[Rfam]
RNA sequence: GGCGGAAGAAGUUUAUCAGUGGGGCCACGUGCUGAGUGAUCGUCACUCUUCGGUCCCUGGCAAGGUCUGAGACUGGGGCCUCCCGCAGCCCUAACCGGGCUCUCCCCGAGCGAGGAGAUGAGUUCCCAGAGAGCAGGGCUCUACGAGUGGGCAGACUGGGCAGGAGAAGCCCUGAGUCUGGGCAGAUGCCUCCCUCGCCAGAGCUUGGAACAGACUCACAGCCAGCAGAGCGAGUUUUAACCAUUUAUAUUUUUUAACAUGAACCACAGAACAAUAAUCAUUCAAACAACAAAACAAAAACAAACACGAAUUAACAGAUUUAUGGAC
Numbered sequence: 001g002g003c004g005g006a007a008g009a010a011g012u013u014u015a016u017c018a019g020u021g022g023g024g025c026c027a028c029g030u031g032c033u034g035a036g037u038g039a040u041c042g043u044c045a046c047u048c049u050u051c052g053g054u055c056c057c058u059g060g061c062a063a064g065g066u067c068u069g070a071g072a073c074u075g076g077g078g079c080c081u082c083c084c085g086c087a088g089c090c091c092u093a094a095c096c097g098g099g100c101u102c103u104c105c106c107c108g109a110g111c112g113a114g115g116a117g118a119u120g121a122g123u124u125c126c127c128a129g130a131g132a133g134c135a136g137g138g139c140u141c142u143a144c145g146a147g148u149g150g151g152c153a154g155a156c157u158g159g160g161c162a163g164g165a166g167a168a169g170c171c172c173u174g175a176g177u178c179u180g181g182g183c184a185g186a187u188g189c190c191u192c193c194c195u196c197g198c199c200a201g202a203g204c205u206u207g208g209a210a211c212a213g214a215c216u217c218a219c220a221g222c223c224a225g226c227a228g229a230g231c232g233a234g235u236u237u238u239a240a241c242c243a244u245u246u247a248u249a250u251u252u253u254u255u256a257a258c259a260u261g262a263a264c265c266a267c268a269g270a271a272c273a274a275u276a277a278u279c280a281u282u283c284a285a286a287c288a289a290c291a292a293a294a295c296a297a298a299a300a301c302a303a304a305c306a307c308g309a310a311u312u313a314a315c316a317g318a319u320u321u322a323u324g325g326a327c
Stems, first nucleotide, its partner, number of pairs: 001327001003325001007321003012247001015244002021057004034048005077223003087101005102117004107112001119218006138204003248302001250300005
RNA: Nuclear RNase P